[Rfam]
RNA sequence: UGGUAGAUGCACCCUGGUUUUGAACCCUAGAGACUAACCUCUCUGGGGUUUUUUAUU
Numbered sequence: 001u002g003g004u005a006g007a008u009g010c011a012c013c014c015u016g017g018u019u020u021u022g023a024a025c026c027c028u029a030g031a032g033a034c035u036a037a038c039c040u041c042u043c044u045g046g047g048g049u050u051u052u053u054u055a056u057u
Stems, first nucleotide, its partner, number of pairs: 002013003024049010

Shown here is a 57-nucleotide RNA from Phormidium nigroviride, a member of the family "Nitrogen stress-induced RNA 1". The family has 17 seed sequences and 962 matches in Rfam 15.1. Taxonomically the source falls in Phormidium nigroviride (Bacteria, Oscillatoriophycideae, Oscillatoriales, Phormidium). The base pairs follow the family's consensus structure.